RNA: mir-153 microRNA precursor family
RNA sequence: GGCAGUGUUAUUUGAGCGGCUAUGCAAGCAGUCAUGAUAGCUGCUUGCAUAGCCGCUCAAAUAACACUGCC
Numbered sequence: 001g002g003c004a005g006u007g008u009u010a011u012u013u014g015a016g017c018g019g020c021u022a023u024g025c026a027a028g029c030a031g032u033c034a035u036g037a038u039a040g041c042u043g044c045u046u047g048c049a050u051a052g053c054c055g056c057u058c059a060a061a062u063a064a065c066a067c068u069g070c071c
Stems, first nucleotide, its partner, number of pairs: 002070019023049007